[Rfam]
RNA sequence: AAAGGGGGCUUCUGUCGUGAGUGGCACAUGUAGAAGAGCUUGAUGGUUCUAUGUGUGGAAUCGACACCAAGAGAUUUGGGGAGCAUAAUUUUUUGGUACUUGGGCAGCUGAUAAUCAUUGGUCCUGGAGCCUGG
Numbered sequence: 001a002a003a004g005g006g007g008g009c010u011u012c013u014g015u016c017g018u019g020a021g022u023g024g025c026a027c028a029u030g031u032a033g034a035a036g037a038g039c040u041u042g043a044u045g046g047u048u049c050u051a052u053g054u055g056u057g058g059a060a061u062c063g064a065c066a067c068c069a070a071g072a073g074a075u076u077u078g079g080g081g082a083g084c085a086u087a088a089u090u091u092u093u094u095g096g097u098a099c100u101u102g103g104g105c106a107g108c109u110g111a112u113a114a115u116c117a118u119u120g121g122u123c124c125u126g127g128a129g130c131c132u133g134g
Base pairs, nucleotide, nucleotide: 008084009083010082011081012080013026014025015024016023017022027055028054029053030052031051032050033049034048035047038044056079058077059076060075061074062073102132103131104130105129108127109126110125114122115121116120
RNA: U11 spliceosomal RNA